[Rfam]
RNA sequence: AAUGUAAAAUUAAAUAAAUCUCGUAUAAUUGUGAAGAUAUGGUUCACGAGUUUCUACCCGGUUAACCGUAAAUUAACUGGACUACGGGGAAGGUACCUGGGAUU
Numbered sequence: 001a002a003u004g005u006a007a008a009a010u011u012a013a014a015u016a017a018a019u020c021u022c023g024u025a026u027a028a029u030u031g032u033g034a035a036g037a038u039a040u041g042g043u044u045c046a047c048g049a050g051u052u053u054c055u056a057c058c059c060g061g062u063u064a065a066c067c068g069u070a071a072a073u074u075a076a077c078u079g080g081a082c083u084a085c086g087g088g089g090a091a092g093g094u095a096c097c098u099g100g101g102a103u104u
Base pairs, nucleotide, nucleotide: 019089020088021087022086023085024084025083029049030048031047032046033045034044035043058080059079060078061077062076063075064074
Rfam assigns this 104-nucleotide RNA sequence from Iocasia frigidifontis to the family "Purine riboswitch aptamer". Gene Ontology term of the family: purine nucleobase biosynthetic process. Pairs were carried over by alignment from the consensus structure, which is taken from published work. Lineage of the source: Bacteria > Bacillota > Halanaerobiales > Halanaerobiaceae > Iocasia. Rfam's curators write: Riboswitches are metabolite binding domains within certain messenger RNAs that serve as precision sensors for their corresponding targets. It scores 78 bits against the family's covariance model.